The record is a 67-nucleotide sequence from Affinundibacterium nitidum, which matches "tRNA" in Rfam. The match comes from Rfam's covariance-model search (52 bits).
RNA sequence: UGGAUAGCUCAUUCUGGUAGAGCAAUCGACUAAUAAUCGAUCUGUCGCGGGUUCGAUUCCCGCUCCA
Numbered sequence: 001u002g003g004a005u006a007g008c009u010c011a012u013u014c015u016g017g018u019a020g021a022g023c024a025a026u027c028g029a030c031u032a033a034u035a036a037u038c039g040a041u042c043u044g045u046c047g048c049g050g051g052u053u054c055g056a057u058u059c060c061c062g063c064u065c066c067a
Stems, first nucleotide, its partner, number of pairs: 001067004007023004025041005047063005

By type it is a transfer RNA.